[Rfam]
RNA sequence: AUUCGUCUUCAGGGGCAGGGUGAAAUUCCCGACCGGUGGUAUAGUCCACGACCUAUUUGGUUCGCCAUUUAGCUGAACUGGUGUAAUUCCAGUACCGACAGUAAAGUCUGGAUAAAGAAGAUGGGG
Numbered sequence: 001a002u003u004c005g006u007c008u009u010c011a012g013g014g015g016c017a018g019g020g021u022g023a024a025a026u027u028c029c030c031g032a033c034c035g036g037u038g039g040u041a042u043a044g045u046c047c048a049c050g051a052c053c054u055a056u057u058u059g060g061u062u063c064g065c066c067a068u069u070u071a072g073c074u075g076a077a078c079u080g081g082u083g084u085a086a087u088u089c090c091a092g093u094a095c096c097g098a099c100a101g102u103a104a105a106g107u108c109u110g111g112a113u114a115a116a117g118a119a120g121a122u123g124g125g126g
Base pairs, nucleotide, nucleotide: 003124004123005122006121007120008119009118010117018030019029020028032107033106034097035096036049037048038047039046044095045094053072054071077093078092079091080090081089099110100109101108
RNA: FMN riboswitch aptamer (RFN element)